[Rfam]
RNA: Bacteroidete tryptophan peptide leader RNA
RNA sequence: UUGAACACAUAAUUAAAGAAAUGAAAUUAAAUUUAAAUAAUACUUGGUGGUGGUGCUUUUCAAACUUAACUUUUGUGAAGUAGAAACCUAGUAUAUUUAAAACUCAAAUAUCAUAAGGCUUGUC
Numbered sequence: 001u002u003g004a005a006c007a008c009a010u011a012a013u014u015a016a017a018g019a020a021a022u023g024a025a026a027u028u029a030a031a032u033u034u035a036a037a038u039a040a041u042a043c044u045u046g047g048u049g050g051u052g053g054u055g056c057u058u059u060u061c062a063a064a065c066u067u068a069a070c071u072u073u074u075g076u077g078a079a080g081u082a083g084a085a086a087c088c089u090a091g092u093a094u095a096u097u098u099a100a101a102a103c104u105c106a107a108a109u110a111u112c113a114u115a116a117g118g119c120u121u122g123u124c
Base pairs, nucleotide, nucleotide: 036098037097040094041093042092043091044090049088050087051086056083057082058080059079060078061075063073064072